RNA sequence: AAGAGCCUUGAACCAAUAAAGAUGGAAGGGAUUGACUCAAGAAAAAA
Numbered sequence: 001a002a003g004a005g006c007c008u009u010g011a012a013c014c015a016a017u018a019a020a021g022a023u024g025g026a027a028g029g030g031a032u033u034g035a036c037u038c039a040a041g042a043a044a045a046a047a
Stems, first nucleotide, its partner, number of pairs: 007041002010038002014034004
RNA: Plastid-rpl16 group II-D1 intron
Organism: Nyssa sinensis